Rfam assigns this 46-nucleotide RNA from a Gemmataceae bacterium to the family "Acido-Lenti-1 RNA".
The family's RNA type in Rfam is small RNA.
RNA sequence: CCCAGGGUUGACACCCUGGGCUAUUGACUGUCGUCCCUUCGGGACU
Numbered sequence: 001c002c003c004a005g006g007g008u009u010g011a012c013a014c015c016c017u018g019g020g021c022u023a024u025u026g027a028c029u030g031u032c033g034u035c036c037c038u039u040c041g042g043g044a045c046u
Base pairs, nucleotide, nucleotide: 001020002019003018004017005016006015007014008013033045034044035043036042037041